This 226-nucleotide sequence from Paenibacillus albus belongs to the Rfam family "c-di-AMP riboswitch aptamer (ydaO/yuaA leader)". Taxonomically the source falls in Paenibacillus (Bacteria, Bacillati, Bacillota, Caryophanales). A search with the family's covariance model found it, with a score of 88 bits.
RNA sequence: UUCCAAUAAACGCUUAAUCUCCGAACAUUCGGAGAGCGGGGGAACCAAUUGUUGAAACUGUUUGUAGCAAUUGUUUGUAGCAAACAGAAGUAAACAUGGAGAUUCUUCUUGGGGUGAAUUUUGCUUGGUGAUGUGGUUGAAGAUAUCACUUCACGUAACGAGCGAAUAGGGCGACUCUCACGCCCGAAUCCGACAGCUAACCUCGCCAGCGUAAAUAAGAGAGAUC
Numbered sequence: 001u002u003c004c005a006a007u008a009a010a011c012g013c014u015u016a017a018u019c020u021c022c023g024a025a026c027a028u029u030c031g032g033a034g035a036g037c038g039g040g041g042g043a044a045c046c047a048a049u050u051g052u053u054g055a056a057a058c059u060g061u062u063u064g065u066a067g068c069a070a071u072u073g074u075u076u077g078u079a080g081c082a083a084a085c086a087g088a089a090g091u092a093a094a095c096a097u098g099g100a101g102a103u104u105c106u107u108c109u110u111g112g113g114g115u116g117a118a119u120u121u122u123g124c125u126u127g128g129u130g131a132u133g134u135g136g137u138u139g140a141a142g143a144u145a146u147c148a149c150u151u152c153a154c155g156u157a158a159c160g161a162g163c164g165a166a167u168a169g170g171g172c173g174a175c176u177c178u179c180a181c182g183c184c185c186g187a188a189u190c191c192g193a194c195a196g197c198u199a200a201c202c203u204c205g206c207c208a209g210c211g212u213a214a215a216u217a218a219g220a221g222a223g224a225u226c
Base pairs, nucleotide, nucleotide: 011211012210013209014208018035019034020033021032022031023030024029036206037205038204039203040202041201046111047110112191113190114189120166121165122164123163124162125161126160127159169185170184171183172182